[Rfam]
RNA: Plastid-ycf2 5UTR RNA
Organism: Vanilla planifolia
RNA sequence: AUGCAUCAAAUAGGAAUUGAACCUUAUGAGUUUGCCAAUUAUGAGUUGGACAUUUUAACCAUUCAGACAUGGAUGC
Number, nucleotide and partner (000 for none) at each position: 001a000002u000003g076004c075005a074006u073007c072008a000009a000010a027011u026012a025013g023014g022015a000016a000017u000018u000019g000020a000021a000022c014023c013024u000025u012026a011027u010028g000029a000030g000031u000032u000033u000034g000035c000036c000037a000038a000039u000040u000041a070042u069043g068044a000045g000046u066047u065048g064049g063050a062051c000052a000053u000054u000055u000056u000057a000058a000059c000060c000061a000062u050063u049064c048065a047066g046067a000068c043069a042070u041071g000072g007073a006074u005075g004076c003